This 111-nucleotide sequence from Vibrio cholerae belongs to the Rfam family "Alpha operon ribosome binding site". Its family is annotated with ribosome binding in the Gene Ontology.

RNA sequence: AAGAAGUAGUAUACCGCAACGUAUCCUCGACGGGCUUUGUUGCGGGUAAUUCUUUGAUGAAAGUACUAGGAGUGCAUAGUGGCCCGUAUAGCAGGCAUUAACAUUCCUGAU
Numbered sequence: 001a002a003g004a005a006g007u008a009g010u011a012u013a014c015c016g017c018a019a020c021g022u023a024u025c026c027u028c029g030a031c032g033g034g035c036u037u038u039g040u041u042g043c044g045g046g047u048a049a050u051u052c053u054u055u056g057a058u059g060a061a062a063g064u065a066c067u068a069g070g071a072g073u074g075c076a077u078a079g080u081g082g083c084c085c086g087u088a089u090a091g092c093a094g095g096c097a098u099u100a101a102c103a104u105u106c107c108u109g110a111u
Stems, first nucleotide, its partner, number of pairs: 004055003008051003012048003025095003031086004040109001
NCBI's taxonomy places the organism under Bacteria, Pseudomonadati, Vibrionales, Vibrionaceae, Vibrio cholerae O1 biovar El Tor. From the family's description: The bacterial alpha operon ribosome binding site is surrounded by this complex pseudoknotted structure. Rfam classes the family as a cis-regulatory element. For this family Rfam cites "Translational repression of the Escherichia coli alpha operon mRNA: importance of an mRNA conformational switch and a ternary entrapment complex" (Schlax et al., J Biol Chem, 2001). Pairs were carried over by alignment from the consensus structure, which is taken from published work.